mir-16 microRNA precursor family: an 80-nucleotide RNA sequence from Prunus yedoensis. The family has 14 seed sequences and 4,705 matches in Rfam 15.1. Lineage of the source: Eukaryota > Streptophyta > Tracheophyta > rosids > Prunus yedoensis. Its family is annotated with miRNA-mediated post-transcriptional gene silencing and RISC complex in the Gene Ontology. The family's consensus secondary structure was predicted with PFOLD. For this family Rfam cites "Cryo-EM Structures of Human Drosha and DGCR8 in Complex with Primary MicroRNA" (Partin et al., Mol Cell, 2020).
RNA sequence: AAAAUAGUAUAGCCGCGCGGCUAUACUGUUUUAAAAAAAAUAAUAAAACACUGAGUAUAGCCGUGCGGCUGUACUAUUUU
Numbered sequence: 001a002a003a004a005u006a007g008u009a010u011a012g013c014c015g016c017g018c019g020g021c022u023a024u025a026c027u028g029u030u031u032u033a034a035a036a037a038a039a040a041u042a043a044u045a046a047a048a049c050a051c052u053g054a055g056u057a058u059a060g061c062c063g064u065g066c067g068g069c070u071g072u073a074c075u076a077u078u079u080u
Base pairs, nucleotide, nucleotide: 001080002079003078005076006075007074010073011070012069013068014067015066016065017064018063022059023058024057025056026055027054